Notes: Rfam assigns this 53-nucleotide sequence from Cucurbita maxima to the family "Plastid-atpF group II-D1 intron". The base pairs follow the family's consensus structure, which was predicted with LocARNA. Plastid atpF is a non-coding RNA (ncRNA) recognised in plastids. It has been reported in the intron group II-D1 region of ATP synthase (atpF) genes. Rfam links the family to the GO term Group II intron splicing.

RNA sequence: AUUUUUUUUAUCGAUAUAGAACACUCAUGUCGAUAAAAUGAUUUGAACUGAAC
Numbered sequence: 001a002u003u004u005u006u007u008u009u010a011u012c013g014a015u016a017u018a019g020a021a022c023a024c025u026c027a028u029g030u031c032g033a034u035a036a037a038a039u040g041a042u043u044u045g046a047a048c049u050g051a052a053c
Stems, first nucleotide, its partner, number of pairs: 011033007